[Rfam]
RNA: ZMP/ZTP riboswitch aptamer (pfl RNA motif)
Organism: Schwartzia succinivorans
RNA sequence: UGAGGUCUGUACGACUGACGGAAGUGGAAUUGACCACAGGGAGUACAGAUAUGAAGAAGCCGACCGUCUGGGCACAUGAA
Numbered sequence: 001u002g003a004g005g006u007c008u009g010u011a012c013g014a015c016u017g018a019c020g021g022a023a024g025u026g027g028a029a030u031u032g033a034c035c036a037c038a039g040g041g042a043g044u045a046c047a048g049a050u051a052u053g054a055a056g057a058a059g060c061c062g063a064c065c066g067u068c069u070g071g072g073c074a075c076a077u078g079a080a
Base pairs, nucleotide, nucleotide: 003052005050006049007048008047009046010045011044012043015040016039017068018067019066020065021064024037025036026035027034059073060072061071